[Rfam]
RNA sequence: GGAUGAACCCUUGGAGAGACUCGAAAUAGAGCACCGAAGGAGCAAGUUAUAUGAGAAAUCAUAUGGUGAAACUCUCAGGUAAAAGGACAGGGGACAGAUA
Numbered sequence: 001g002g003a004u005g006a007a008c009c010c011u012u013g014g015a016g017a018g019a020c021u022c023g024a025a026a027u028a029g030a031g032c033a034c035c036g037a038a039g040g041a042g043c044a045a046g047u048u049a050u051a052u053g054a055g056a057a058a059u060c061a062u063a064u065g066g067u068g069a070a071a072c073u074c075u076c077a078g079g080u081a082a083a084a085g086g087a088c089a090g091g092g093g094a095c096a097g098a099u100a
Base pairs, nucleotide, nucleotide: 008093009092010091011090012089013088020031021030022029033080034079035078036076037075040074041073042072046067047066048065049064050063051062052061053060054059